[Rfam]
RNA sequence: CCACGUAACUCACAAACGCACGGCAGGAGCGGGGGACCCAGGUAAGCCGCCGGACCGGACGCCUUGACGGCGCACCGGCCCGGCUAGGGGUGAAGUCGCGCUGCCGCACGGUGGCCCGGCCGGGCAUCUCCCGCCCGAACCCGACAGCUCACCUCGCAGGCGUCGGAGAGGAACA
Numbered sequence: 001c002c003a004c005g006u007a008a009c010u011c012a013c014a015a016a017c018g019c020a021c022g023g024c025a026g027g028a029g030c031g032g033g034g035g036a037c038c039c040a041g042g043u044a045a046g047c048c049g050c051c052g053g054a055c056c057g058g059a060c061g062c063c064u065u066g067a068c069g070g071c072g073c074a075c076c077g078g079c080c081c082g083g084c085u086a087g088g089g090g091u092g093a094a095g096u097c098g099c100g101c102u103g104c105c106g107c108a109c110g111g112u113g114g115c116c117c118g119g120c121c122g123g124g125c126a127u128c129u130c131c132c133g134c135c136c137g138a139a140c141c142c143g144a145c146a147g148c149u150c151a152c153c154u155c156g157c158a159g160g161c162g163u164c165g166g167a168g169a170g171g172a173a174c175a
Base pairs, nucleotide, nucleotide: 001027002026029157030156031155032154033153034152039087088142089141090140096119097118098117122136123135124134125133
c-di-AMP riboswitch aptamer (ydaO/yuaA leader): a 175-nucleotide RNA from Streptomyces sp. PAN_FS17. Taxonomically the source falls in Streptomyces (Bacteria, Actinomycetota, Actinomycetes, Streptomycetaceae). Rfam links the family to the GO terms cyclic-di-AMP binding and regulation of gene expression. It scores 38 bits against the family's covariance model.